[Rfam]
Shown here is an 80-nucleotide RNA sequence from Diceros bicornis, a member of the family "mir-598 microRNA precursor family". Taxonomically the source falls in Diceros bicornis (Eukaryota, Opisthokonta, Eutheria, Boreoeutheria).

RNA sequence: GCUGAUGCUGGUGGUGAUGCUGAUGGUGUGAGCUGGAAAUGGGGCGCUACGUCAUCGUUGUCAUUGUUAUCAUCGUCGUC
Numbered sequence: 001g002c003u004g005a006u007g008c009u010g011g012u013g014g015u016g017a018u019g020c021u022g023a024u025g026g027u028g029u030g031a032g033c034u035g036g037a038a039a040u041g042g043g044g045c046g047c048u049a050c051g052u053c054a055u056c057g058u059u060g061u062c063a064u065u066g067u068u069a070u071c072a073u074c075g076u077c078g079u080c
Base pairs, nucleotide, nucleotide: 001077003075004074005073006072007071009069010068011067012066013065014064015063016062017061021060022059023058024057025056026055027054028053029051030050031048032047033046